[Rfam]
M-box riboswitch aptamer (ykoK leader): a 163-nucleotide sequence from Firmicutes bacterium CAG:129. The match comes from Rfam's covariance-model search (95 bits).

RNA sequence: AUAUUCGUCCGGUAGGUAAGGCUACCAUCAGGAUAUGGACUGCUGCCGCAGAGUCGUGGAGACACGAUGCGAGGGUUUGAACAGUUGGCAUCGAAACCAAGGUGCCAUCUAAUGCAGUUUCACCGCCUGGUGAUGCUAAAGCUUGAACGGUAGGGAAGAUCGC
Number, nucleotide and partner (000 for none) at each position: 001a000002u000003a000004u000005u159006c158007g000008u156009c155010c154011g148012g000013u100014a000015g143016g142017u141018a000019a000020g137021g136022c135023u000024a000025c000026c132027a131028u130029c129030a128031g127032g126033a000034u000035a000036u000037g000038g000039a118040c117041u116042g115043c114044u000045g077046c074047c073048g000049c071050a000051g000052a000053g000054u000055c066056g065057u064058g063059g000060a000061g000062a000063c058064a057065c056066g055067a000068u000069g000070c000071g049072a000073g047074g046075g000076u000077u045078u000079g000080a000081a000082c000083a000084g109085u000086u107087g106088g000089c000090a103091u102092c101093g000094a000095a000096a000097c000098c000099a000100a013101g092102g091103u090104g000105c000106c087107a086108u000109c084110u000111a000112a000113u000114g043115c042116a041117g040118u039119u000120u000121c000122a000123c000124c000125g000126c032127c031128u030129g029130g028131u027132g026133a000134u000135g022136c021137u020138a000139a000140a000141g017142c016143u015144u000145g000146a000147a000148c011149g000150g000151u000152a000153g000154g010155g009156a008157a000158g006159a005160u000161c000162g000163c000
The source organism's lineage runs through Bacteria, Bacillati and Bacillota.